RNA sequence: UACAUACGGAACCAGUCGGUAUUAGCUAGCUCAACGUGCUUUCGAAGCGGUAAUGGUUGGGCUGGGUUUUGGUGGUGGACUUGGCUGAUGACGGCAGCGAAUCGUUAUGGUUUGGGCAUUGGGCGGUCUGAGUGAUGUUACAUCUACUUGGGCUCAAUCGCGCAUCCGGGGCCGAACCAAGAAGCAGUGUCGGGACCCAUCUCGUGUUGGAGUCAAAGUUUCGUGCUUGUCUGGUACUGUGGGCUGGCGGGACUGGGUGCGCGCUUGAGAUGUGCUCUGCGGCGCUCUCGUGUUGAGCUUUUGCCUUGAAAGGACAGGCCUCGGGAUAUGGGUAGUCCUGGUUGUCCCGGCCGUCUGAAAUGUCGGACGGGGCAACCCCCCGCAUUGGAGG
Numbered sequence: 001u002a003c004a005u006a007c008g009g010a011a012c013c014a015g016u017c018g019g020u021a022u023u024a025g026c027u028a029g030c031u032c033a034a035c036g037u038g039c040u041u042u043c044g045a046a047g048c049g050g051u052a053a054u055g056g057u058u059g060g061g062c063u064g065g066g067u068u069u070u071g072g073u074g075g076u077g078g079a080c081u082u083g084g085c086u087g088a089u090g091a092c093g094g095c096a097g098c099g100a101a102u103c104g105u106u107a108u109g110g111u112u113u114g115g116g117c118a119u120u121g122g123g124c125g126g127u128c129u130g131a132g133u134g135a136u137g138u139u140a141c142a143u144c145u146a147c148u149u150g151g152g153c154u155c156a157a158u159c160g161c162g163c164a165u166c167c168g169g170g171g172c173c174g175a176a177c178c179a180a181g182a183a184g185c186a187g188u189g190u191c192g193g194g195a196c197c198c199a200u201c202u203c204g205u206g207u208u209g210g211a212g213u214c215a216a217a218g219u220u221u222c223g224u225g226c227u228u229g230u231c232u233g234g235u236a237c238u239g240u241g242g243g244c245u246g247g248c249g250g251g252a253c254u255g256g257g258u259g260c261g262c263g264c265u266u267g268a269g270a271u272g273u274g275c276u277c278u279g280c281g282g283c284g285c286u287c288u289c290g291u292g293u294u295g296a297g298c299u300u301u302u303g304c305c306u307u308g309a310a311a312g313g314a315c316a317g318g319c320c321u322c323g324g325g326a327u328a329u330g331g332g333u334a335g336u337c338c339u340g341g342u343u344g345u346c347c348c349g350g351c352c353g354u355c356u357g358a359a360a361u362g363u364c365g366g367a368c369g370g371g372g373c374a375a376c377c378c379c380c381c382g383c384a385u386u387g388g389a390g391g
Base pairs, nucleotide, nucleotide: 194214195213196212197210198209199208216228217227218226219225
Ascomycota telomerase RNA: a 391-nucleotide part of an RNA from Beauveria bassiana. The literature on the family includes a 2013 paper in Nucleic Acids Res by Qi et al., "The common ancestral core of vertebrate and fungal telomerase RNAs". By type it is a non-coding RNA gene. The base pairs follow the family's consensus structure. Its Rfam clan is "Telomerase clan".